[Rfam]
RNA sequence: CAACAGCUGAAAGGAGGUGAUCCAGUGUCUCAUAGUUUCAUCCGCAAUGCGGAACACCGGACCUGGACCUCCGCUUUCGAGGUCCGCGCCUAAGCCUUCGUUUCGGCAAGGGUUCGGAACCGCGUUCGCGGUCCGACUAUGGAAAGGCCGCCCCGACAACGGGCGGCCUU
Numbered sequence: 001c002a003a004c005a006g007c008u009g010a011a012a013g014g015a016g017g018u019g020a021u022c023c024a025g026u027g028u029c030u031c032a033u034a035g036u037u038u039c040a041u042c043c044g045c046a047a048u049g050c051g052g053a054a055c056a057c058c059g060g061a062c063c064u065g066g067a068c069c070u071c072c073g074c075u076u077u078c079g080a081g082g083u084c085c086g087c088g089c090c091u092a093a094g095c096c097u098u099c100g101u102u103u104c105g106g107c108a109a110g111g112g113u114u115c116g117g118a119a120c121c122g123c124g125u126u127c128g129c130g131g132u133c134c135g136a137c138u139a140u141g142g143a144a145a146g147g148c149c150g151c152c153c154c155g156a157c158a159a160c161g162g163g164c165g166g167c168c169u170u
Stems, first nucleotide, its partner, number of pairs: 016023002031141007045065001050060001067083005084117003087112001089111003094107003120131004144170010155160001
Dot-bracket structure: ...............((....)).......(((((((.......(....(.........)....).(((((.......)))))((((.(((..(((........))).))))..)))..((((....))))...)))))))..((((((((((.(....)))))))))))
This 170-nucleotide RNA from Phenylobacterium soli belongs to the Rfam family "caulobacter sRNA CC2171". By type it is a small RNA. The literature on the family includes a 2008 paper in Mol Microbiol by Landt et al., "Small non-coding RNAs in Caulobacter crescentus". A search with the family's covariance model found it, with a score of 91 bits.